[Rfam]
RNA: Small Cajal body-specific RNA 7
RNA sequence: UGGAAGUGAUGAAAUGGAGAUUUUGGGUGUUGAGUUAAUGUUGGUAAUUUGUAAAUAGAUGUGUGUUUUUUGUUUGUUUUUUUUUUGUAGCUUUAAUUUUAAUUAGUAUAUGGGGUGUAUGUACGAGUAAAGUUGGUUAUUUGAAAGGGAGCAAUUACAUUGCUGAUUUCGGAGUACAUCUGAGGGAUGUUGCUCUAUAAAGGUCUGAAAUGCAACAUUACCAGUGAUUAGAGCCCAUACUGAGCCACCUUCAAUAACCUGUAUACCUAUACAUCUCUAACAGGUACAUAAUUAAUAUGUACAUGUGUUCUGAUCCAA
Dot-bracket structure: ((((.......................................................................................................................................................................................(((((((..(.(....).))....))))))................................................................................................)))).